[Rfam]
RNA sequence: UAAUAUCCCUGGGGGAGGUUUUGUGUAACACUUAAAUCCUGAGAGUCUCUUAAGCCGAUUGACAUAGACUAGACGGCUUAAACGACAACCCUUGGAACCUGAUACGGGUAAUGCCGUCGUAGGGAUAGGGAAGAUGUGUGUAA
Numbered sequence: 001u002a003a004u005a006u007c008c009c010u011g012g013g014g015g016a017g018g019u020u021u022u023g024u025g026u027a028a029c030a031c032u033u034a035a036a037u038c039c040u041g042a043g044a045g046u047c048u049c050u051u052a053a054g055c056c057g058a059u060u061g062a063c064a065u066a067g068a069c070u071a072g073a074c075g076g077c078u079u080a081a082a083c084g085a086c087a088a089c090c091c092u093u094g095g096a097a098c099c100u101g102a103u104a105c106g107g108g109u110a111a112u113g114c115c116g117u118c119g120u121a122g123g124g125a126u127a128g129g130g131a132a133g134a135u136g137u138g139u140g141u142a143a
Stems, first nucleotide, its partner, number of pairs: 006131005011092004017039002020036004046085002098123004104117004

TPP riboswitch aptamer (THI element): a 143-nucleotide RNA from Candidatus Magnetovum chiemense. Rfam links the family to the GO term thiamine pyrophosphate binding. A search with the family's covariance model found it, with a score of 65 bits. Vitamin B(1) in its active form thiamin pyrophosphate (TPP) is an essential coenzyme that is synthesised by coupling of pyrimidine and thiazole moieties in bacteria. The source organism's lineage runs through Bacteria, Pseudomonadati, Nitrospirota, Nitrospiria and Candidatus Magnetovum.